[Rfam]
Overview: Rfam assigns this 72-nucleotide RNA from Brachypteracias leptosomus to the family "Small nucleolar RNA SNORD63". From the family's description: snoRNA U63 is found in both humans and mice. The source organism's lineage runs through Eukaryota, Deuterostomia, Teleostomi, Aves and Brachypteracias. The family has 23 seed sequences and 795 matches in Rfam 15.1. The literature on the family includes a 2002 paper in Mol Cell Biol by Galardi et al., "Purified box C/D snoRNPs are able to reproduce site-specific 2'-O-methylation of target RNA in vitro". The family's RNA type in Rfam is C/D-box small nucleolar RNA. Gene Ontology terms of the family: nucleolus and RNA processing. Pairs were carried over by alignment from the consensus structure, which was predicted with PFOLD. A search with the family's covariance model found it, with a score of 56 bits.
RNA sequence: GUGCCAUGAUGUUAACUCUCAACACAUCAUUCUGAACAAGAAUUGUGUGGAGAACUUUUGAUACUGAGCAUC
Numbered sequence: 001g002u003g004c005c006a007u008g009a010u011g012u013u014a015a016c017u018c019u020c021a022a023c024a025c026a027u028c029a030u031u032c033u034g035a036a037c038a039a040g041a042a043u044u045g046u047g048u049g050g051a052g053a054a055c056u057u058u059u060g061a062u063a064c065u066g067a068g069c070a071u072c
Base pairs, nucleotide, nucleotide: 001071002070003069004068